The record is a 68-nucleotide sequence from Micromonospora pattaloongensis, which matches "ASdes TB sRNA" in Rfam. Rfam 15.1 lists 1,192 matches to the family in 825 species. The family's consensus secondary structure is taken from published work. It is annotated as a small RNA. The literature on the family includes a 2009 paper in Mol Microbiol by Arnvig and Young, "Identification of small RNAs in Mycobacterium tuberculosis". A search with the family's covariance model found it, with a score of 65 bits.

RNA sequence: AGCGCCACCGGGUCCACCGCGCGCUUCACCGUCAGGUAGUCGCGGAUCGCGGUGCCGUGCCGCCCCUC
Numbered sequence: 001a002g003c004g005c006c007a008c009c010g011g012g013u014c015c016a017c018c019g020c021g022c023g024c025u026u027c028a029c030c031g032u033c034a035g036g037u038a039g040u041c042g043c044g045g046a047u048c049g050c051g052g053u054g055c056c057g058u059g060c061c062g063c064c065c066c067u068c
Stems, first nucleotide, its partner, number of pairs: 004063002008059001011030003016026001035056004040052005
Dot-bracket structure: ...((..(..(((..(.........).)))....((((.(((((...)))))))))..)..)).....